[Rfam]
The record is a 93-nucleotide RNA from Mycobacterium sherrisii, which matches "Mycobacterium sRNA ncrMT1302" in Rfam. NCBI's taxonomy places the organism under Bacteria, Mycobacteriales, Mycobacteriaceae, Mycobacterium, Mycobacterium simiae complex. For this family Rfam cites "A screen for non-coding RNA in Mycobacterium tuberculosis reveals a cAMP-responsive RNA that is expressed during infection" (Pelly et al., Gene, 2012).
RNA sequence: AAGCGGCCGUUCAAAGUGUCGGCAGCGGGGAAGGAGCCGGCCGCGUCGGACCGUGUCAGACGCCCCCAGCGCCGCCCGGGCCUGCCCACAUGU
Numbered sequence: 001a002a003g004c005g006g007c008c009g010u011u012c013a014a015a016g017u018g019u020c021g022g023c024a025g026c027g028g029g030g031a032a033g034g035a036g037c038c039g040g041c042c043g044c045g046u047c048g049g050a051c052c053g054u055g056u057c058a059g060a061c062g063c064c065c066c067c068a069g070c071g072c073c074g075c076c077c078g079g080g081c082c083u084g085c086c087c088a089c090a091u092g093u
Stems, first nucleotide, its partner, number of pairs: 003075005019040004026033001043063004078087003